[Rfam]
Annotation:
This 111-nucleotide RNA from Nocardia gamkensis belongs to the Rfam family "SAM (S-adenosyl methionine) riboswitch aptamer". About the family: SAM-IV is a mRNA element that regulates gene expression via direct sensing of S-adenosylmethionine (SAM or AdoMet). SAM-IV riboswitches share conserved nucleotide positions with the previously described SAM-I riboswitches sequence analysis and molecular recognition experiments suggest that SAM-I and SAM-IV riboswitches share similar ligand binding sites, but have different scaffolds. It scores 106 bits against the family's covariance model. NCBI's taxonomy places the organism under Bacteria, Actinomycetes, Mycobacteriales, Nocardiaceae, Nocardia.
RNA sequence: GGUUAUGAGUACCAGCGCCAAGCCCCGGCUCGCUGGUCGGCAACCCUCCAACCGCGGUGGGGUGCUCCGGGUGAUGACCUGGCUCCCGAGAGUCGGGAGCAAGCGCGUAAC
Numbered sequence: 001g002g003u004u005a006u007g008a009g010u011a012c013c014a015g016c017g018c019c020a021a022g023c024c025c026c027g028g029c030u031c032g033c034u035g036g037u038c039g040g041c042a043a044c045c046c047u048c049c050a051a052c053c054g055c056g057g058u059g060g061g062g063u064g065c066u067c068c069g070g071g072u073g074a075u076g077a078c079c080u081g082g083c084u085c086c087c088g089a090g091a092g093u094c095g096g097g098a099g100c101a102a103g104c105g106c107g108u109a110a111c
Stems, first nucleotide, its partner, number of pairs: 001079004009038001011037006021030002039066003044062003048057002082100008